Overview:
A member of the RNA family "Selenocysteine transfer RNA" from Cryptotermes secundus, 86 nucleotides long. A reference for the family is Mizutani and Goto (2000), "Eukaryotic selenocysteine tRNA has the 9/4 secondary structure", FEBS Lett. Gene Ontology term of the family: triplet codon-amino acid adaptor activity. It scores 77 bits against the family's covariance model.

[Rfam]
RNA sequence: GCCCAGCAGAGCUUCGGUGGUCCGGAGUGCAGGCUUCAAACCUGUAGCUGAUUAACGUCAGAGUGGUUCGAUUCCACCUGUUGGGC
Numbered sequence: 001g002c003c004c005a006g007c008a009g010a011g012c013u014u015c016g017g018u019g020g021u022c023c024g025g026a027g028u029g030c031a032g033g034c035u036u037c038a039a040a041c042c043u044g045u046a047g048c049u050g051a052u053u054a055a056c057g058u059c060a061g062a063g064u065g066g067u068u069c070g071a072u073u074c075c076a077c078c079u080g081u082u083g084g085g086c
Stems, first nucleotide, its partner, number of pairs: 001086009012027006028046006048061005063077004